RNA: Iron response element I
RNA sequence: CUGUCUCUUGCUUCAACCGUGUUUAAACGGAACAG
Numbered sequence: 001c002u003g004u005c006u007c008u009u010g011c012u013u014c015a016a017c018c019g020u021g022u023u024u025a026a027a028c029g030g031a032a033c034a035g
Base pairs, nucleotide, nucleotide: 001035002034003033004032006031007030008029010028012027013026015024016023017021
Dot-bracket structure: ((((.(((.(.((.(((...).)).))))))))))